Shown here is a 131-nucleotide RNA sequence from Abrus precatorius, a member of the family "MIR5225 microRNA precursor family". Taxonomically the source falls in Abrus (Eukaryota, Viridiplantae, Streptophyta, Gunneridae). Its family is annotated with miRNA-mediated post-transcriptional gene silencing and RISC complex in the Gene Ontology.
RNA sequence: UCUAGGGACUCCUGUCGCAGGAGAGAUGACACCUUCUGUUACUGAUUAAAGGAAAAUGGUGCAAAGCCAAUUUUAAUUAAUUAGUACUUAGCAGUAGUUGUCAUCUUUCCUGGGCUGGUGCCCCUGCACUU
Numbered sequence: 001u002c003u004a005g006g007g008a009c010u011c012c013u014g015u016c017g018c019a020g021g022a023g024a025g026a027u028g029a030c031a032c033c034u035u036c037u038g039u040u041a042c043u044g045a046u047u048a049a050a051g052g053a054a055a056a057u058g059g060u061g062c063a064a065a066g067c068c069a070a071u072u073u074u075a076a077u078u079a080a081u082u083a084g085u086a087c088u089u090a091g092c093a094g095u096a097g098u099u100g101u102c103a104u105c106u107u108u109c110c111u112g113g114g115c116u117g118g119u120g121c122c123c124c125u126g127c128a129c130u131u
Stems, first nucleotide, its partner, number of pairs: 005123003009120001011118002014115003019111003023107009